Shown here is a 237-nucleotide RNA sequence from Xylaria grammica, a member of the family "Small nucleolar RNA snR191". Rfam classes the family as an H/ACA-box small nucleolar RNA. The family is grouped with related families in Rfam's "SNORA74 clan". It scores 59 bits against the family's covariance model.
[Rfam]
RNA sequence: CCCCAAUGCUCUUGUCAGGAUACUUCUUGCUUUAUUGCUUUCCCUGGAAGAUAUCUGUUACAGCGUUGGAAAAUCAAACUUCAAACUUGCUGUUCUCUGGUUUUCGGACUUGAGAGCUGAUUGAGUUCCGUUUUGGGACUCUCUCAUAAGUUUCGCCGUGUUUCACUUGAGUUGAAGUCUACCUCUACCAUUAUCAGGUAGCUCGUGGUAGACUUCUUAGUUACGAUUCAUACAUUU
Numbered sequence: 001c002c003c004c005a006a007u008g009c010u011c012u013u014g015u016c017a018g019g020a021u022a023c024u025u026c027u028u029g030c031u032u033u034a035u036u037g038c039u040u041u042c043c044c045u046g047g048a049a050g051a052u053a054u055c056u057g058u059u060a061c062a063g064c065g066u067u068g069g070a071a072a073a074u075c076a077a078a079c080u081u082c083a084a085a086c087u088u089g090c091u092g093u094u095c096u097c098u099g100g101u102u103u104u105c106g107g108a109c110u111u112g113a114g115a116g117c118u119g120a121u122u123g124a125g126u127u128c129c130g131u132u133u134u135g136g137g138a139c140u141c142u143c144u145c146a147u148a149a150g151u152u153u154c155g156c157c158g159u160g161u162u163u164c165a166c167u168u169g170a171g172u173u174g175a176a177g178u179c180u181a182c183c184u185c186u187a188c189c190a191u192u193a194u195c196a197g198g199u200a201g202c203u204c205g206u207g208g209u210a211g212a213c214u215u216c217u218u219a220g221u222u223a224c225g226a227u228u229c230a231u232a233c234a235u236u237u
Stems, first nucleotide, its partner, number of pairs: 003069005018056005023050005029038002080155001089117003093113002096108004118146003124140007158231003163226002174216004180210004186200004